Rfam assigns this 63-nucleotide sequence from Mus musculus to the family "U7 small nuclear RNA". The organism belongs to Mus, within Eukaryota. Rfam's curators write: Animal histone pre-mRNAs are spliced by a different mechanism than nuclear pre-mRNAs and self-splicing introns. A search with the family's covariance model found it, with a score of 35 bits.

RNA sequence: GAGUGAACAUAGCUCUUUUAGAAUUUUUCUAACAAGAUUUCUGAUCUUGGUUGGAAAAACCAA
Numbered sequence: 001g002a003g004u005g006a007a008c009a010u011a012g013c014u015c016u017u018u019u020a021g022a023a024u025u026u027u028u029c030u031a032a033c034a035a036g037a038u039u040u041c042u043g044a045u046c047u048u049g050g051u052u053g054g055a056a057a058a059a060c061c062a063a
Stems, first nucleotide, its partner, number of pairs: 036060001038057008